Background
Rfam assigns this 119-nucleotide RNA from Cervus elaphus to the family "Small nucleolar RNA SNORA33". Gene Ontology terms of the family: nucleolus and RNA processing. Rfam 15.1 lists 1,176 matches to the family in 522 species. Rfam describes the family as follows. ACA33 is a member of the H/ACA class of snoRNA that guide the sites of modification of uridines to pseudouridines. It scores 95 bits against the family's covariance model.
RNA sequence: ACAUCAGAAAUUUUAAAAAUUACUGUUAAAAAAAUAUAGAAAAUGCUGUCAAUAGGAAAGCCAUGUUACGAGCCUUAAAGACAUUGAAGUCAUUAAGGUCCCUGAAAAUGGCUACAAGG
Numbered sequence: 001a002c003a004u005c006a007g008a009a010a011u012u013u014u015a016a017a018a019a020u021u022a023c024u025g026u027u028a029a030a031a032a033a034a035u036a037u038a039g040a041a042a043a044u045g046c047u048g049u050c051a052a053u054a055g056g057a058a059a060g061c062c063a064u065g066u067u068a069c070g071a072g073c074c075u076u077a078a079a080g081a082c083a084u085u086g087a088a089g090u091c092a093u094u095a096a097g098g099u100c101c102c103u104g105a106a107a108a109u110g111g112c113u114a115c116a117a118g119g
Base pairs, nucleotide, nucleotide: 011032012031013030014028060112061111062110063109072099073098074097075096076095077094078093080091081090082089